[Rfam]
RNA sequence: ACGUUGUGUCGACCUCCGUCUGCUAAAUCUUCGGCGCGCAGGUCCGGGUGGAACCGGGCCCACCCCAUGGGUGUCCCGGGCGCG
Numbered sequence: 001a002c003g004u005u006g007u008g009u010c011g012a013c014c015u016c017c018g019u020c021u022g023c024u025a026a027a028u029c030u031u032c033g034g035c036g037c038g039c040a041g042g043u044c045c046g047g048g049u050g051g052a053a054c055c056g057g058g059c060c061c062a063c064c065c066c067a068u069g070g071g072u073g074u075c076c077c078g079g080g081c082g083c084g
Base pairs, nucleotide, nucleotide: 002018003017006014035084036083037082038081039080041060042059043058044057045056046055047054061073062072063071064070065069
Shown here is an 84-nucleotide RNA sequence from Synechococcus sp. RSCCF101, a member of the family "ATPC RNA motif". A reference for the family is Weinberg et al. (2007), "Identification of 22 candidate structured RNAs in bacteria using the CMfinder comparative genomics pipeline", Nucleic Acids Res.